[Rfam]
RNA: ZMP/ZTP riboswitch aptamer (pfl RNA motif)
RNA sequence: GUGCCCGGCCGUGACUGGCGAAGGUGGACCUGACCACCGGGGAGCGGCCGAGGUCCCCGUACAGGGCGCCGCCCGCCUGGGCGCCUGGG
Numbered sequence: 001g002u003g004c005c006c007g008g009c010c011g012u013g014a015c016u017g018g019c020g021a022a023g024g025u026g027g028a029c030c031u032g033a034c035c036a037c038c039g040g041g042g043a044g045c046g047g048c049c050g051a052g053g054u055c056c057c058c059g060u061a062c063a064g065g066g067c068g069c070c071g072c073c074c075g076c077c078u079g080g081g082c083g084c085c086u087g088g089g
Stems, first nucleotide, its partner, number of pairs: 004052001006050007015041002017077004024037004066084005